RNA: mir-8834 microRNA precursor family
Organism: Vulpes vulpes
RNA sequence: AGGAGGAACAGCCACAAUGGGGCGGCAGCUCUGGAAACCUGGAUUCAGUCCCCACAGUAACUCCGGGGCUCUCGGUCUGUAGGGCCUGGAGGCUCUGGGGUGGG
Number, nucleotide and partner (000 for none) at each position: 001a000002g096003g095004a094005g093006g000007a000008a000009c088010a087011g086012c084013c083014a000015c000016a000017a000018u000019g077020g076021g000022g073023c000024g071025g000026c000027a070028g069029c068030u067031c066032u065033g064034g063035a062036a000037a000038c000039c057040u056041g055042g000043a000044u000045u000046c000047a000048g000049u000050c000051c000052c000053c000054a000055c041056a040057g039058u000059a000060a000061c000062u035063c034064c033065g032066g031067g030068g029069c028070u027071c024072u000073c022074g000075g000076u020077c019078u000079g000080u000081a000082g000083g013084g012085c000086c011087u010088g009089g000090a000091g000092g000093c005094u004095c003096u002097g000098g000099g000100g000101u000102g000103g000104g000